[Rfam]
RNA sequence: AAUAUCGAUGAUGACUCCAUAGACCUGUAACGAUUCCGGAGAUGACCGCGCAAAUAGCAUCUAAGGGGCUGAGGCAUU
Numbered sequence: 001a002a003u004a005u006c007g008a009u010g011a012u013g014a015c016u017c018c019a020u021a022g023a024c025c026u027g028u029a030a031c032g033a034u035u036c037c038g039g040a041g042a043u044g045a046c047c048g049c050g051c052a053a054a055u056a057g058c059a060u061c062u063a064a065g066g067g068g069c070u071g072a073g074g075c076a077u078u
Stems, first nucleotide, its partner, number of pairs: 002077002005074002

About this RNA
A member of the RNA family "Small nucleolar RNA SNORD25" from Aquilegia coerulea, 78 nucleotides long. The organism belongs to Aquilegia, within Eukaryota. By type it is a C/D-box small nucleolar RNA. A search with the family's covariance model found it, with a score of 40 bits.